[Rfam]
RNA sequence: AAUGCGCAACAUUAAUAUCCUUGUAUAAUAUCAGUGAAAAUGGUCUGAUAGUUUCUACCUGGCUGCCGAAAAUUGCCGGACUACAAGGAAGUUUGAAUGAUAU
Numbered sequence: 001a002a003u004g005c006g007c008a009a010c011a012u013u014a015a016u017a018u019c020c021u022u023g024u025a026u027a028a029u030a031u032c033a034g035u036g037a038a039a040a041u042g043g044u045c046u047g048a049u050a051g052u053u054u055c056u057a058c059c060u061g062g063c064u065g066c067c068g069a070a071a072a073u074u075g076c077c078g079g080a081c082u083a084c085a086a087g088g089a090a091g092u093u094u095g096a097a098u099g100a101u102a103u
Stems, first nucleotide, its partner, number of pairs: 018089008029050006059079005065073001
Shown here is a 103-nucleotide RNA sequence from Peribacillus psychrosaccharolyticus, a member of the family "Purine riboswitch aptamer". Pairs were carried over by alignment from the consensus structure, which is taken from published work. A search with the family's covariance model found it, with a score of 78 bits.